Rfam assigns this 97-nucleotide RNA sequence from Thalictrum thalictroides to the family "Small nucleolar RNA R32/R81/Z41". Rfam classes the family as a C/D-box small nucleolar RNA. Pairs were carried over by alignment from the consensus structure, which was predicted with PFOLD. The match comes from Rfam's covariance-model search (46 bits). On this family, see Barneche et al., J Mol Biol 2001: "Identification of 66 box C/D snoRNAs in Arabidopsis thaliana: extensive gene duplications generated multiple isoforms predicting new ribosomal RNA 2'-O-methylation sites".

[Rfam]
RNA sequence: AUUGGAUUAUGAUGAAAGAAGGAGUUGGUGAUUAUCAAAUGAUAUGAUCCUAAUAAAAAUUUCUCCUUUUUUUCGCUACGUUCUUUCUGAAUCCAAA
Numbered sequence: 001a002u003u004g005g006a007u008u009a010u011g012a013u014g015a016a017a018g019a020a021g022g023a024g025u026u027g028g029u030g031a032u033u034a035u036c037a038a039a040u041g042a043u044a045u046g047a048u049c050c051u052a053a054u055a056a057a058a059a060u061u062u063c064u065c066c067u068u069u070u071u072u073u074c075g076c077u078a079c080g081u082u083c084u085u086u087c088u089g090a091a092u093c094c095a096a097a
Stems, first nucleotide, its partner, number of pairs: 004094004